Description:
This 163-nucleotide part of an RNA from Hemiselmis andersenii belongs to the Rfam family "Eukaryotic small subunit ribosomal RNA". Pairs were carried over by alignment from the consensus structure, which is taken from published work.
[Rfam]
RNA sequence: CCGCCCGUCGCUCCUACCGAUUGGAUGGUCCGGUGAAAUGUUCGGAUUUAAACAUUUUCGCGGGUGCGAAUUUAUGUUUUAAAAAGUUCAUUAAGCCUUACCAUCUAGAGGAAGGAGAAGUCGUAACAAGGUUUCCGUAGGUGAACCUGCGGAAGGAUCAUAA
Numbered sequence: 001c002c003g004c005c006c007g008u009c010g011c012u013c014c015u016a017c018c019g020a021u022u023g024g025a026u027g028g029u030c031c032g033g034u035g036a037a038a039u040g041u042u043c044g045g046a047u048u049u050a051a052a053c054a055u056u057u058u059c060g061c062g063g064g065u066g067c068g069a070a071u072u073u074a075u076g077u078u079u080u081a082a083a084a085a086g087u088u089c090a091u092u093a094a095g096c097c098u099u100a101c102c103a104u105c106u107a108g109a110g111g112a113a114g115g116a117g118a119a120g121u122c123g124u125a126a127c128a129a130g131g132u133u134u135c136c137g138u139a140g141g142u143g144a145a146c147c148u149g150c151g152g153a154a155g156g157a158u159c160a161u162a163a
Stems, first nucleotide, its partner, number of pairs: 001130001003127001006123002009120001011117005017111002021107001023106007032097003037092004043086001047082002050079006058069004132155010
Dot-bracket structure: (.(..((.(.(((((.((..(.(((((((..(((..((((..(...((.((((((..((((....))))....)))))).))...)..))))..)))..))))))))..)).)))))..).))...)..).((((((((((....))))))))))........
The sequence is in the family's curated seed alignment. The source organism's lineage runs through Eukaryota, Cryptophyceae, Cryptomonadales, Hemiselmidaceae and Hemiselmis.